Overview:
The record is a 352-nucleotide part of an RNA from Thermodesulfatator indicus, which matches "Bacterial small subunit ribosomal RNA" in Rfam. The source organism's lineage runs through Bacteria, Pseudomonadati, Thermodesulfobacteriales, Thermodesulfatatoraceae and Thermodesulfatator indicus. The family's consensus secondary structure is taken from published work.

RNA sequence: GGCGUAAAGGGGGCGUAGGCGGCCGGACGAGUCGGACGUGAAAGCCCGGGGCUCAACCCCGGAAUUGCGUUCGAUACUGUCUGGCUUGAGGUCCGGAGAGGCCGGCGGAAUUCCCGGUGUAGGGGUGAAAUCCGUAGAUAUCGGGAGGAACACCGGUGGCGAAGGCGGCCGGCUGGACGGCACCUGACGCUGAGGCCCGAAAGCGUGGGGAGCAAACCGGAUUAGAUACCCGGGUAGUCCACGCCGUAAACGAUGGGUGCUAGGUGUGGGGGGUUAAACCUUCCGUGCCGAAGCUAACGCAAUAAGCACCCCGCCUGGGGAGUACGGCCGCAAGGCUGAAACUCAAAGGAAU
Numbered sequence: 001g002g003c004g005u006a007a008a009g010g011g012g013g014c015g016u017a018g019g020c021g022g023c024c025g026g027a028c029g030a031g032u033c034g035g036a037c038g039u040g041a042a043a044g045c046c047c048g049g050g051g052c053u054c055a056a057c058c059c060c061g062g063a064a065u066u067g068c069g070u071u072c073g074a075u076a077c078u079g080u081c082u083g084g085c086u087u088g089a090g091g092u093c094c095g096g097a098g099a100g101g102c103c104g105g106c107g108g109a110a111u112u113c114c115c116g117g118u119g120u121a122g123g124g125g126u127g128a129a130a131u132c133c134g135u136a137g138a139u140a141u142c143g144g145g146a147g148g149a150a151c152a153c154c155g156g157u158g159g160c161g162a163a164g165g166c167g168g169c170c171g172g173c174u175g176g177a178c179g180g181c182a183c184c185u186g187a188c189g190c191u192g193a194g195g196c197c198c199g200a201a202a203g204c205g206u207g208g209g210g211a212g213c214a215a216a217c218c219g220g221a222u223u224a225g226a227u228a229c230c231c232g233g234g235u236a237g238u239c240c241a242c243g244c245c246g247u248a249a250a251c252g253a254u255g256g257g258u259g260c261u262a263g264g265u266g267u268g269g270g271g272g273g274u275u276a277a278a279c280c281u282u283c284c285g286u287g288c289c290g291a292a293g294c295u296a297a298c299g300c301a302a303u304a305a306g307c308a309c310c311c312c313g314c315c316u317g318g319g320g321a322g323u324a325c326g327g328c329c330g331c332a333a334g335g336c337u338g339a340a341a342c343u344c345a346a347a348g349g350a351a352u
Base pairs, nucleotide, nucleotide: 001315002314003313009312011198012197013196014195016192018191019190020189022085023084024083025082026081027080028079030078031077032074033073034072035071036070037069038068039067040066046062047061048060049059050058051057089185090184091183093180094179095178100174101173102172103171104170105169106168107151111147112146113145114144115143116142117141118140122133123132124131159166160165203244204243205242206241207240208239212238213237217233218232219231220230255311256310257309258308259307260306263289264288265287266286267285268284269283270282271281272280273279274278293300294299317344318343319342326337327336328335329334